[Rfam]
RNA sequence: UAAGUCCCUGUCGGGCAAGGUUUGACCAACCACCCGUAUCGAGUGUUGCGCCUAUGGCGGAGUUUGUGGAUCGAAAGUACUUUCCUGUAUUUUUUUUAUAAAAAAAAUUAAAUACAGCAAGCGAACAAAAUAGGUGAAGCGUACACAGAGAAAUAUAUAGGCCAUAGGGAUUGUCGUGAUCCUGAGUGCUGUUAUCGCUCCGAGAAUGGUGAGUUCUGACUGACGAGGUUUCUUCUUAUAACGCUAGGGCCAUCGAAGUCCAUGCAAAGCAAUCGUUAUGGUUAGAUUGUGGCGAGUCAGCGGAGUUAUUAAGUC
Numbered sequence: 001u002a003a004g005u006c007c008c009u010g011u012c013g014g015g016c017a018a019g020g021u022u023u024g025a026c027c028a029a030c031c032a033c034c035c036g037u038a039u040c041g042a043g044u045g046u047u048g049c050g051c052c053u054a055u056g057g058c059g060g061a062g063u064u065u066g067u068g069g070a071u072c073g074a075a076a077g078u079a080c081u082u083u084c085c086u087g088u089a090u091u092u093u094u095u096u097u098a099u100a101a102a103a104a105a106a107a108u109u110a111a112a113u114a115c116a117g118c119a120a121g122c123g124a125a126c127a128a129a130a131u132a133g134g135u136g137a138a139g140c141g142u143a144c145a146c147a148g149a150g151a152a153a154u155a156u157a158u159a160g161g162c163c164a165u166a167g168g169g170a171u172u173g174u175c176g177u178g179a180u181c182c183u184g185a186g187u188g189c190u191g192u193u194a195u196c197g198c199u200c201c202g203a204g205a206a207u208g209g210u211g212a213g214u215u216c217u218g219a220c221u222g223a224c225g226a227g228g229u230u231u232c233u234u235c236u237u238a239u240a241a242c243g244c245u246a247g248g249g250c251c252a253u254c255g256a257a258g259u260c261c262a263u264g265c266a267a268a269g270c271a272a273u274c275g276u277u278a279u280g281g282u283u284a285g286a287u288u289g290u291g292g293c294g295a296g297u298c299a300g301c302g303g304a305g306u307u308a309u310u311a312a313g314u315c
Stems, first nucleotide, its partner, number of pairs: 012036004019031004023284004039149002043146004047141002049136007059126001194309001197306006216300006222260003227254003265294001269290006

This 315-nucleotide RNA sequence from Oleispira antarctica belongs to the Rfam family "Group II catalytic intron D1-D4-6". The literature on the family includes a 2001 paper in Trends Genet by Bonen and Vogel, "The ins and outs of group II introns". Pairs were carried over by alignment from the consensus structure. Group II introns are found in rRNA, tRNA and mRNA of organelles in fungi, plants and protists, and also in mRNA in bacteria. The match comes from Rfam's covariance-model search (87 bits).